[Rfam]
RNA sequence: GCAUGGACGAGUUCUGUGUUACUCUGUCAGUAGUAGAUGCAAUCAGACACCAUGCAAAACAUCCUUUCACUACUUCUUUACUAAAGGUGAGUGCUGACCUGUGCCUCACCUACUCCUUGGAGAAGUGAAUACAAGU
Numbered sequence: 001g002c003a004u005g006g007a008c009g010a011g012u013u014c015u016g017u018g019u020u021a022c023u024c025u026g027u028c029a030g031u032a033g034u035a036g037a038u039g040c041a042a043u044c045a046g047a048c049a050c051c052a053u054g055c056a057a058a059a060c061a062u063c064c065u066u067u068c069a070c071u072a073c074u075u076c077u078u079u080a081c082u083a084a085a086g087g088u089g090a091g092u093g094c095u096g097a098c099c100u101g102u103g104c105c106u107c108a109c110c111u112a113c114u115c116c117u118u119g120g121a122g123a124a125g126u127g128a129a130u131a132c133a134a135g136u
Base pairs, nucleotide, nucleotide: 001055002054003053004052005051006050015041016040017039018038019037066129067128068127071123074120075119083117086114087113088112089111091109092108096107
RNA: Small nucleolar RNA SNORA15